[Rfam]
RNA sequence: UCCUGUGUUGGCGGCUCUAACGACAUCGUAGCGAUACAGGAGCAGUAAAGCGUUACUAGAAGGGUAAGAGGCUGAAACAGCGCAAUACAGGUGGCGAAGUUAGUUCCUGUGCCUCGAAAGACUGACGGGU
Numbered sequence: 001u002c003c004u005g006u007g008u009u010g011g012c013g014g015c016u017c018u019a020a021c022g023a024c025a026u027c028g029u030a031g032c033g034a035u036a037c038a039g040g041a042g043c044a045g046u047a048a049a050g051c052g053u054u055a056c057u058a059g060a061a062g063g064g065u066a067a068g069a070g071g072c073u074g075a076a077a078c079a080g081c082g083c084a085a086u087a088c089a090g091g092u093g094g095c096g097a098a099g100u101u102a103g104u105u106c107c108u109g110u111g112c113c114u115c116g117a118a119a120g121a122c123u124g125a126c127g128g129g130u
Stems, first nucleotide, its partner, number of pairs: 001041010029058003050083005069114004087110005099126006

The family of this 130-nucleotide RNA sequence is "Betaproteobacteria-1 RNA". By type it is a small RNA. The family's consensus secondary structure is taken from published work.